[Rfam]
RNA sequence: GUUAUUCGAGGUGGAAGAAUACGUCCACGUCCACACGCCGAUGGCUUGACAAGGGGAAACCCCGAGAGAUGCAGGAGAAUUGGACGCCUGCCGAAUAAC
Numbered sequence: 001g002u003u004a005u006u007c008g009a010g011g012u013g014g015a016a017g018a019a020u021a022c023g024u025c026c027a028c029g030u031c032c033a034c035a036c037g038c039c040g041a042u043g044g045c046u047u048g049a050c051a052a053g054g055g056g057a058a059a060c061c062c063c064g065a066g067a068g069a070u071g072c073a074g075g076a077g078a079a080u081u082g083g084a085c086g087c088c089u090g091c092c093g094a095a096u097a098a099c
Base pairs, nucleotide, nucleotide: 001099002098003097004096005095006094007093008092011034012033013032014031015030023085036066037045038044039043071091072090073089074088075087
RNA: skipping-rope RNA